[Rfam]
Overview
Rfam assigns this 88-nucleotide sequence from Equus caballus to the family "mir-9014 microRNA precursor family".
RNA sequence: CGCAUCAAUGGGAGGGAUCCCAAUCCAGCCUUAGGAAAAGAAACCUUCCACGGGAGUCUUGGAGAUUGGCGGCCGUCCUAAUGACUUA
Numbered sequence: 001c002g003c004a005u006c007a008a009u010g011g012g013a014g015g016g017a018u019c020c021c022a023a024u025c026c027a028g029c030c031u032u033a034g035g036a037a038a039a040g041a042a043a044c045c046u047u048c049c050a051c052g053g054g055a056g057u058c059u060u061g062g063a064g065a066u067u068g069g070c071g072g073c074c075g076u077c078c079u080a081a082u083g084a085c086u087u088a
Stems, first nucleotide, its partner, number of pairs: 002087001006083002010079004015074002018071001020069006029062002038060004044054003
Record summary: A search with the family's covariance model found it, with a score of 75 bits. Rfam 15.1 lists 581 matches to the family in 2 species. The base pairs follow the family's consensus structure, which was predicted with RNAalifold.